[Rfam]
RNA sequence: GUAGAGAAGCUCAUCAGUGGGGCUAGGAGCUGAGUGCACUUAGUCACUCUGUCCCAUGUCCCUUGGGAAGGUCUGGGACUAGGGCCAUAGCGCGGCCCUAAAAGGGCCUUCCCUGAGCUUUGGGGAGGUGAGUUCCCAGAGAACGGGGCUCCACGCACACAAGGGCAGACUGGGCAGGAGGUGCUAUGGACCCCGCCUUUGCAGAGGGUCCUGGCGGAUGCCUCCUUAGCAGAGUUUGGAACAGACUCACUGCCAGCGAAGUGAGUUCAAUGGCUGAGGUGAGGUAUCCUGCGUGGGGGCCUCAUAACCCAAUUCAGACUACUCCCGCCCAU
Numbered sequence: 001g002u003a004g005a006g007a008a009g010c011u012c013a014u015c016a017g018u019g020g021g022g023c024u025a026g027g028a029g030c031u032g033a034g035u036g037c038a039c040u041u042a043g044u045c046a047c048u049c050u051g052u053c054c055c056a057u058g059u060c061c062c063u064u065g066g067g068a069a070g071g072u073c074u075g076g077g078a079c080u081a082g083g084g085c086c087a088u089a090g091c092g093c094g095g096c097c098c099u100a101a102a103a104g105g106g107c108c109u110u111c112c113c114u115g116a117g118c119u120u121u122g123g124g125g126a127g128g129u130g131a132g133u134u135c136c137c138a139g140a141g142a143a144c145g146g147g148g149c150u151c152c153a154c155g156c157a158c159a160c161a162a163g164g165g166c167a168g169a170c171u172g173g174g175c176a177g178g179a180g181g182u183g184c185u186a187u188g189g190a191c192c193c194c195g196c197c198u199u200u201g202c203a204g205a206g207g208g209u210c211c212u213g214g215c216g217g218a219u220g221c222c223u224c225c226u227u228a229g230c231a232g233a234g235u236u237u238g239g240a241a242c243a244g245a246c247u248c249a250c251u252g253c254c255a256g257c258g259a260a261g262u263g264a265g266u267u268c269a270a271u272g273g274c275u276g277a278g279g280u281g282a283g284g285u286a287u288c289c290u291g292c293g294u295g296g297g298g299g300c301c302u303c304a305u306a307a308c309c310c311a312a313u314u315c316a317g318a319c320u321a322c323u324c325c326c327g328c329c330c331a332u
Stems, first nucleotide, its partner, number of pairs: 001332002004329001006325001010278004015273001019063004032049005037043001073317005083254003094108005109127006128250007148235003279305007
Dot-bracket structure: ((.(.(...[[[[.[...((((.........((((((.....).)))))..........)))).........(((((.....(((........(((((.....)))))((((((.......))))))(((((((.............(((..................................................................................)))........))))))).)))..................].]]]](((((((.............))))))).......))))).......)...).))
This 332-nucleotide RNA from Bos taurus belongs to the Rfam family "Nuclear RNase P". Rfam's curators write: Ribonuclease P (RNase P) is a ubiquitous endoribonuclease, found in archaea, bacteria and eukarya as well as chloroplasts and mitochondria. Its best characterised activity is the generation of mature 5'-ends of tRNAs by cleaving the 5'-leader elements of precursor-tRNAs. Cellular RNase Ps are ribonucleoproteins. RNA from bacterial RNase Ps retains its catalytic activity in the absence of the protein subunit, i.e. it is a ribozyme. Pairs were carried over by alignment from the consensus structure, which is taken from published work. The source organism's lineage runs through Eukaryota, Chordata, Euteleostomi, Tetrapoda and Bos.